Overview
Rfam assigns this 314-nucleotide RNA sequence from Methanobrevibacter sp. AbM4 to the family "Archaeal signal recognition particle RNA". Taxonomically the source falls in Methanobrevibacter (Archaea, Methanobacteriati, Methanobacteria, Methanobacteriales). A search with the family's covariance model found it, with a score of 203 bits. On this family, see Rosenblad et al., RNA Biol 2009: "Kinship in the SRP RNA family".

RNA sequence: UUUAUGGCUAGACUGGAGGGUUAGGGGUCCUCUGUAAGCACAGAUCCCCUUUGGUGCGGUCGAAAUCCGAAAGGCGGCUUUUGGAUAUAAUAAAGGCCUUAAAAAGUGAUAUGGAAACUUCGUCCUGCAGGAUUAAUGGUGGUAUGAUUUUUACUGGAGGGUAGGAAUUAAUUACCUUUAUUGUGGGAAUGUGUUAGGCCCGGAAGGGAGCAGCUCUACUAUGAACAAUUAAUGCUUGUAGAGUAGCGGAGUGGAGUCGGUUUUUGAGAUAACCUUUAUUGUUGAAUUUAGUCCACUUUCGGAUGUGCCAUUUU
Numbered sequence: 001u002u003u004a005u006g007g008c009u010a011g012a013c014u015g016g017a018g019g020g021u022u023a024g025g026g027g028u029c030c031u032c033u034g035u036a037a038g039c040a041c042a043g044a045u046c047c048c049c050u051u052u053g054g055u056g057c058g059g060u061c062g063a064a065a066u067c068c069g070a071a072a073g074g075c076g077g078c079u080u081u082u083g084g085a086u087a088u089a090a091u092a093a094a095g096g097c098c099u100u101a102a103a104a105a106g107u108g109a110u111a112u113g114g115a116a117a118c119u120u121c122g123u124c125c126u127g128c129a130g131g132a133u134u135a136a137u138g139g140u141g142g143u144a145u146g147a148u149u150u151u152u153a154c155u156g157g158a159g160g161g162u163a164g165g166a167a168u169u170a171a172u173u174a175c176c177u178u179u180a181u182u183g184u185g186g187g188a189a190u191g192u193g194u195u196a197g198g199c200c201c202g203g204a205a206g207g208g209a210g211c212a213g214c215u216c217u218a219c220u221a222u223g224a225a226c227a228a229u230u231a232a233u234g235c236u237u238g239u240a241g242a243g244u245a246g247c248g249g250a251g252u253g254g255a256g257u258c259g260g261u262u263u264u265u266g267a268g269a270u271a272a273c274c275u276u277u278a279u280u281g282u283u284g285a286a287u288u289u290a291g292u293c294c295a296c297u298u299u300c301g302g303a304u305g306u307g308c309c310a311u312u313u314u
Stems, first nucleotide, its partner, number of pairs: 004311005011061004015033007038057004065304009076293004082286001087282010098268008107259004112254001117252007125241007132233005137227002139178001141176004146169010181224006191216001193214002199208003